[Rfam]
This 95-nucleotide RNA from Treponema denticola belongs to the Rfam family "TD-2 RNA". Pairs were carried over by alignment from the consensus structure, which is taken from published work. The family's RNA type in Rfam is small RNA. The family has 36 seed sequences and 310 matches in Rfam 15.1. Clan: TD (Treponema denticola) motifs.
RNA sequence: GACCUCCUGUCGAUGUUUGAGCCUUACUUCCGCGAUGUUUUGCCGUCAGGCAAAACUCGAAGUUCAAUUCUGUCACAGGCAGAAUUGAUACAAAC
Numbered sequence: 001g002a003c004c005u006c007c008u009g010u011c012g013a014u015g016u017u018u019g020a021g022c023c024u025u026a027c028u029u030c031c032g033c034g035a036u037g038u039u040u041u042g043c044c045g046u047c048a049g050g051c052a053a054a055a056c057u058c059g060a061a062g063u064u065c066a067a068u069u070c071u072g073u074c075a076c077a078g079g080c081a082g083a084a085u086u087g088a089u090a091c092a093a094a095c
Base pairs, nucleotide, nucleotide: 001017002016003015005013006012033059034058035057037056038055039054040053041052042051043050044049062091063090064088065087066086067085068084069083070082071081072080073079074078